[Rfam]
RNA: TPP riboswitch aptamer (THI element)
RNA sequence: GCAAAACACUAGGGGUGCCAUUCAGCAAUCGCUGAGUGGCUGAGAUCACACCCUCCGAACCUGAUACGGGUUGUGCCGGCGCAGGGAAGUGAAAUGACGUGAUC
Numbered sequence: 001g002c003a004a005a006a007c008a009c010u011a012g013g014g015g016u017g018c019c020a021u022u023c024a025g026c027a028a029u030c031g032c033u034g035a036g037u038g039g040c041u042g043a044g045a046u047c048a049c050a051c052c053c054u055c056c057g058a059a060c061c062u063g064a065u066a067c068g069g070g071u072u073g074u075g076c077c078g079g080c081g082c083a084g085g086g087a088a089g090u091g092a093a094a095u096g097a098c099g100u101g102a103u104c
Base pairs, nucleotide, nucleotide: 007091008090009089010088011054012053013052014051016048017040018039019038020037021036022035023034024033025032060085061084062083063082067078068077069076